RNA sequence: UUUGUUCUGCUUUAUCUACAUUGUCAGGCAUGGAAUCACGUUCCAUUGACAUGCUUGGAGGAUAUUGACCUGGUUUGGGAUCCAUACAUGCAGUCAAUGUAGUAGCUGCGAACAACAGUGUUGAGAUGACGAGUACGAGUUUCAUUUUCAGUCUCCUAUAAGAAAAAGUACAUUCACAAUAUAGUUCUUCCAACAGUUCUGACUUACUGUCCCCUUUUUAGAAAGACAUCUAUUUGAUACCAGAUACGAUAUGCCCUGUCAAGAAUUUUUUAGACGUAUGCUUGACAGCAUCUGAUUACCAUAAGACAACUAUAUUUUUAUAAA
Numbered sequence: 001u002u003u004g005u006u007c008u009g010c011u012u013u014a015u016c017u018a019c020a021u022u023g024u025c026a027g028g029c030a031u032g033g034a035a036u037c038a039c040g041u042u043c044c045a046u047u048g049a050c051a052u053g054c055u056u057g058g059a060g061g062a063u064a065u066u067g068a069c070c071u072g073g074u075u076u077g078g079g080a081u082c083c084a085u086a087c088a089u090g091c092a093g094u095c096a097a098u099g100u101a102g103u104a105g106c107u108g109c110g111a112a113c114a115a116c117a118g119u120g121u122u123g124a125g126a127u128g129a130c131g132a133g134u135a136c137g138a139g140u141u142u143c144a145u146u147u148u149c150a151g152u153c154u155c156c157u158a159u160a161a162g163a164a165a166a167a168g169u170a171c172a173u174u175c176a177c178a179a180u181a182u183a184g185u186u187c188u189u190c191c192a193a194c195a196g197u198u199c200u201g202a203c204u205u206a207c208u209g210u211c212c213c214c215u216u217u218u219u220a221g222a223a224a225g226a227c228a229u230c231u232a233u234u235u236g237a238u239a240c241c242a243g244a245u246a247c248g249a250u251a252u253g254c255c256c257u258g259u260c261a262a263g264a265a266u267u268u269u270u271u272a273g274a275c276g277u278a279u280g281c282u283u284g285a286c287a288g289c290a291u292c293u294g295a296u297u298a299c300c301a302u303a304a305g306a307c308a309a310c311u312a313u314a315u316u317u318u319u320a321u322a323a324a
Stems, first nucleotide, its partner, number of pairs: 004310003007118003011114001015111002020063003024058006030046007065097005073087002076084003102109002119287007126279003130276002133159003137155003141151002162271006169264001173262002176259003179252004184247001186226002188223003192218002195215002201211003231246006
Rfam assigns this 324-nucleotide RNA from Nitrosomonas europaea to the family "Nitrosomonas sRNA psRNA6". The source organism's lineage runs through Bacteria, Pseudomonadati, Pseudomonadota, Betaproteobacteria and Nitrosomonas europaea. The family's RNA type in Rfam is small RNA.